A member of the RNA family "caulobacter sRNA CC2171" from Caulobacter vibrioides, 178 nucleotides long. The organism belongs to Caulobacter vibrioides, within Bacteria. Pairs were carried over by alignment from the consensus structure, which was predicted with RNAalifold.

[Rfam]
RNA sequence: CAACAACUGAAAGGAGGUGGUCCAGUGUCUCAUUGUCUCCAACCGCGGUCGCAAGUCGUGACCUGGAGCCCGAAGAGCGAGGUCUCCGCCUAAGGCGUUGAGCGCCAAGGGUUUCGAGUCACUGGCUGCGAGAGCGGCUACGACGAUGGAGGGCCGCCCCGAGCGAUCGGGGCGGCCC
Numbered sequence: 001c002a003a004c005a006a007c008u009g010a011a012a013g014g015a016g017g018u019g020g021u022c023c024a025g026u027g028u029c030u031c032a033u034u035g036u037c038u039c040c041a042a043c044c045g046c047g048g049u050c051g052c053a054a055g056u057c058g059u060g061a062c063c064u065g066g067a068g069c070c071c072g073a074a075g076a077g078c079g080a081g082g083u084c085u086c087c088g089c090c091u092a093a094g095g096c097g098u099u100g101a102g103c104g105c106c107a108a109g110g111g112u113u114u115c116g117a118g119u120c121a122c123u124g125g126c127u128g129c130g131a132g133a134g135c136g137g138c139u140a141c142g143a144c145g146a147u148g149g150a151g152g153g154c155c156g157c158c159c160c161g162a163g164c165g166a167u168c169g170g171g172g173c174g175g176c177c178c
Base pairs, nucleotide, nucleotide: 016023017022031148032147033146034145035144036143037142044066047063048062049061050060051059067083069081084118085117086116090111091110094106095105096104097103125138126137127136128135129134151178152177153176154175155174156173157172158171159170160169161168162167